[Rfam]
The family of this 235-nucleotide sequence from Catenibacterium sp. CAG:290 is "T-box leader".
Rfam classes the family as a cis-regulatory leader.
On this family, see Grundy et al., J Bacteriol 1994: "Interaction between the acceptor end of tRNA and the T box stimulates antitermination in the Bacillus subtilis tyrS gene: a new role for the discriminator base".

RNA sequence: AAAAAGACAGCGAAUUGAAAAGAACAUUCAGUUUUUGGAUUUACAGAGAGUUCCUAGUGCUGAGAGGGAAUGAUCCAUGUGAAUGAAAUACAUCAAGGAGUCGGGAUAUUGAAAUGAAGUAGGUAUCCACGGGUACGACCGUUAUAUCGUCAGAGUAUGAUAGUACUCACAGAGGUCUAUAUAGUGAUAUAUGGAUAAAAUAAGGUGGUAACGCGAAGUCCCUCUCGUCCUUAUA
Numbered sequence: 001a002a003a004a005a006g007a008c009a010g011c012g013a014a015u016u017g018a019a020a021a022g023a024a025c026a027u028u029c030a031g032u033u034u035u036u037g038g039a040u041u042u043a044c045a046g047a048g049a050g051u052u053c054c055u056a057g058u059g060c061u062g063a064g065a066g067g068g069a070a071u072g073a074u075c076c077a078u079g080u081g082a083a084u085g086a087a088a089u090a091c092a093u094c095a096a097g098g099a100g101u102c103g104g105g106a107u108a109u110u111g112a113a114a115u116g117a118a119g120u121a122g123g124u125a126u127c128c129a130c131g132g133g134u135a136c137g138a139c140c141g142u143u144a145u146a147u148c149g150u151c152a153g154a155g156u157a158u159g160a161u162a163g164u165a166c167u168c169a170c171a172g173a174g175g176u177c178u179a180u181a182u183a184g185u186g187a188u189a190u191a192u193g194g195a196u197a198a199a200a201u202a203a204g205g206u207g208g209u210a211a212c213g214c215g216a217a218g219u220c221c222c223u224c225u226c227g228u229c230c231u232u233a234u235a
Stems, first nucleotide, its partner, number of pairs: 007101002015096004025085006039074003050071006104128007130141003175196007202232004213228004
About this RNA: Pairs were carried over by alignment from the consensus structure, which is taken from published work.